[Rfam]
RNA sequence: ACGCGCUGGCGGGACUCGGUGAAAUUCCGAACCGGCGGUGAUCCGACGCGAGAGCGACGGUAAGCCCGCGACCCGGUUGCCUACCAAGGCAGACGGUGGACCUGGUGAGACUCCAGGGCCGACGGUUGACCGGCUGGGAAGCCGAUCAGACAGUCCGGAUGGGAGACAGCGCGC
Numbered sequence: 001a002c003g004c005g006c007u008g009g010c011g012g013g014a015c016u017c018g019g020u021g022a023a024a025u026u027c028c029g030a031a032c033c034g035g036c037g038g039u040g041a042u043c044c045g046a047c048g049c050g051a052g053a054g055c056g057a058c059g060g061u062a063a064g065c066c067c068g069c070g071a072c073c074c075g076g077u078u079g080c081c082u083a084c085c086a087a088g089g090c091a092g093a094c095g096g097u098g099g100a101c102c103u104g105g106u107g108a109g110a111c112u113c114c115a116g117g118g119c120c121g122a123c124g125g126u127u128g129a130c131c132g133g134c135u136g137g138g139a140a141g142c143c144g145a146u147c148a149g150a151c152a153g154u155c156c157g158g159a160u161g162g163g164a165g166a167c168a169g170c171g172c173g174c
Base pairs, nucleotide, nucleotide: 003172004171005170006169007168008167010165017029018028019027033121034120035069036068037067038066064119065118073096074095101117102116103115104114105113123157124156125155

The record is a 174-nucleotide sequence from Actinoplanes philippinensis, which matches "FMN riboswitch aptamer (RFN element)" in Rfam. About the family: The RFN element is a highly conserved domain that is found frequently in the 5'-untranslated regions of prokaryotic mRNAs that encode for flavin mononucleotide (FMN) biosynthesis and transport proteins. The organism belongs to Actinoplanes, within Bacteria.